[Rfam]
RNA sequence: CAUUUGUGCUAGGGGUGCCGUUAUGGCUGAGAAAGAGACCUUUGUCUCUUAACCCUUUGAACCUGAUGCGGUUAGUACCGCCGGAGGGAAGCUUUAAAUAUGGUGU
Numbered sequence: 001c002a003u004u005u006g007u008g009c010u011a012g013g014g015g016u017g018c019c020g021u022u023a024u025g026g027c028u029g030a031g032a033a034a035g036a037g038a039c040c041u042u043u044g045u046c047u048c049u050u051a052a053c054c055c056u057u058u059g060a061a062c063c064u065g066a067u068g069c070g071g072u073u074a075g076u077a078c079c080g081c082c083g084g085a086g087g088g089a090a091g092c093u094u095u096a097a098a099u100a101u102g103g104u105g106u
Stems, first nucleotide, its partner, number of pairs: 006094001008092003011056004017027004034049005062087003068081004
Dot-bracket structure: .....(.(((((((..((((...))))......(((((......)))))...)))).....(((...((((......))))...)))..))).)............

The record is a 106-nucleotide RNA sequence from Acetivibrio straminisolvens, which matches "TPP riboswitch aptamer (THI element)" in Rfam. Taxonomically the source falls in Acetivibrio straminisolvens (Bacteria, Bacillota, Acetivibrionales, Acetivibrio). It scores 80 bits against the family's covariance model. The family's consensus secondary structure is taken from published work.